[Rfam]
RNA sequence: ACUUCGAUUUAUUUGCUGCAUGGUCUGCCAGUGAUAUGAGCAGUUUUAUGCAUGGGAUAAAAUAAUGUUGGGCUAUAAUAAACUGAAUUGAAAUAACUAUUUUAUCUCUGCUGCAUGGUGUGGACACUA
Numbered sequence: 001a002c003u004u005c006g007a008u009u010u011a012u013u014u015g016c017u018g019c020a021u022g023g024u025c026u027g028c029c030a031g032u033g034a035u036a037u038g039a040g041c042a043g044u045u046u047u048a049u050g051c052a053u054g055g056g057a058u059a060a061a062a063u064a065a066u067g068u069u070g071g072g073c074u075a076u077a078a079u080a081a082a083c084u085g086a087a088u089u090g091a092a093a094u095a096a097c098u099a100u101u102u103u104a105u106c107u108c109u110g111c112u113g114c115a116u117g118g119u120g121u122g123g124a125c126a127c128u129a
Stems, first nucleotide, its partner, number of pairs: 003057003007053002015044005021036002024034002068123003072119004079113002085108002089104006

Notes: A member of the RNA family "Small nucleolar RNA SNORA20" from Heterocephalus glaber, 129 nucleotides long. ACA20 is a member of the H/ACA class of snoRNA that guide the sites of modification of uridines to pseudouridines. Gene Ontology terms of the family: RNA processing and nucleolus. The family's RNA type in Rfam is H/ACA-box small nucleolar RNA.